[Rfam]
RNA: ASpks TB sRNA
RNA sequence: UUUGACCGACCCCAGCCACAGUGGUUCGCCGGAGCGCUCCCUGCCGUAGGUGGCGAGCAGUGCCUGUGCCUC
Numbered sequence: 001u002u003u004g005a006c007c008g009a010c011c012c013c014a015g016c017c018a019c020a021g022u023g024g025u026u027c028g029c030c031g032g033a034g035c036g037c038u039c040c041c042u043g044c045c046g047u048a049g050g051u052g053g054c055g056a057g058c059a060g061u062g063c064c065u066g067u068g069c070c071u072c
Stems, first nucleotide, its partner, number of pairs: 014026004030066001035062002040057001042055001044053003